[Rfam]
RNA: Small nucleolar RNA R66
Organism: Sorghum bicolor
RNA sequence: CCCCGUGAUGGCACAAUCUUUGAGACCUGAGAUUUUCUUCCUUGAUGAAUUUCAAAAGCAUGAUUACUGAGGGC
Numbered sequence: 001c002c003c004c005g006u007g008a009u010g011g012c013a014c015a016a017u018c019u020u021u022g023a024g025a026c027c028u029g030a031g032a033u034u035u036u037c038u039u040c041c042u043u044g045a046u047g048a049a050u051u052u053c054a055a056a057a058g059c060a061u062g063a064u065u066a067c068u069g070a071g072g073g074c
Base pairs, nucleotide, nucleotide: 001073002072003071030043031040032039